[Rfam]
Nucleotides: 303
Stems, first nucleotide, its partner, number of pairs: 001040003004023006028037003044302004049297002052294002056290002059286002061283003065279001068278002071275002074272002077269001078263002081260004086255001089253002099248007107237002111234004116228004121223004126165003130161008140151004172219006184209003191202003
Number, partner (000 for none) and nucleotide at each position: 001040g002039c003038u004023g005022a006021g007020c008019u009018g010000a011000g012000u013000a014000g015000c016000g017000c018009c019008a020007g021006c022005u023004u024000g025000u026000g027000a028037c029036c030035c031000a032000u033000g034000u035030g036029g037028g038003g039002g040001c041000a042000a043000u044302a045301a046300g047299g048000u049297g050296a051000u052294g053293g054000a055000a056290c057289a058000u059286g060285g061283c062282u063281a064000a065279g066000g067000c068278u069277u070000a071275a072274c073000a074272a075271g076000u077269u078263g079262g080000u081260c082259u083258g084257g085000u086255g087000g088000u089253u090252g091000c092000a093000c094000c095000a096000u097000g098000c099248u100247g101246g102245c103244c104243u105242g106000c107237c108236c109000g110000c111234u112233c113232c114231a115000a116228g117227u118226u119225g120000u121223g122222a123221g124220u125000u126165g127164a128163c129000c130161c131160a132159u133158g134157a135156g136155a137154c138000u139000u140151g141150u142149g143148c144000g145000a146000a147000g148143g149142c150141a151140c152000c153000u154137g155136u156135c157134u158133u159132g160131u161130g162000u163128g164127u165126c166000u167000u168000a169000g170000a171000c172219a173218g174217g175216a176215g177214g178000g179000u180000a181000u182000a183000g184209c185208g186207u187000g188000a189000g190000g191202c192201u193200g194000g195000u196000u197000u198000c199000a200193u201192a202191g203000a204000g205000c206000a207186g208185c209184g210000a211000a212000c213000a214177c215176u216175u217174c218173c219172u220124a221123c222122u223121c224000u225119u226118g227117a228116u229000a230000g231114u232113g233112g234111a235000a236108g237107g238000a239000u240000c241000a242105c243104g244103g245102g246101c247100c248099g249000c250000u251000g252090u253089a254000c255086c256000u257084c258083c259082a260081g261000u262079c263078c264000a265000u266000a267000a268000c269077a270000c271075c272074u273000g274072g275071u276000g277069a278068g279065c280000c281063u282062a283061g284000u285060c286059c287000c288000u289057u290056g291000a292000a293053c294052c295000c296050u297049c298000u299047c300046u301045u302044u303000u